[Rfam]
RNA sequence: CUCGCAGUAUAUUUUUGUGUUUUGUUGUGUCUGAAACGCAAAUCACAGGAUUAUACUGUGAG
Numbered sequence: 001c002u003c004g005c006a007g008u009a010u011a012u013u014u015u016u017g018u019g020u021u022u023u024g025u026u027g028u029g030u031c032u033g034a035a036a037c038g039c040a041a042a043u044c045a046c047a048g049g050a051u052u053a054u055a056c057u058g059u060g061a062g
Stems, first nucleotide, its partner, number of pairs: 001062011013050007021042004

mir-308 microRNA precursor family: a 62-nucleotide sequence from Drosophila persimilis. The base pairs follow the family's consensus structure, which was predicted with RNAalifold. Lineage of the source: Eukaryota > Diptera > Cyclorrhapha > Drosophilini > Sophophora. Rfam's curators put it in the seed alignment.